RNA: DUF805b RNA
RNA sequence: AUCGAGGAUGCCGAAAAGCGAAAGAGUAGGCA
Numbered sequence: 001a002u003c004g005a006g007g008a009u010g011c012c013g014a015a016a017a018g019c020g021a022a023a024g025a026g027u028a029g030g031c032a
Stems, first nucleotide, its partner, number of pairs: 002021003010031003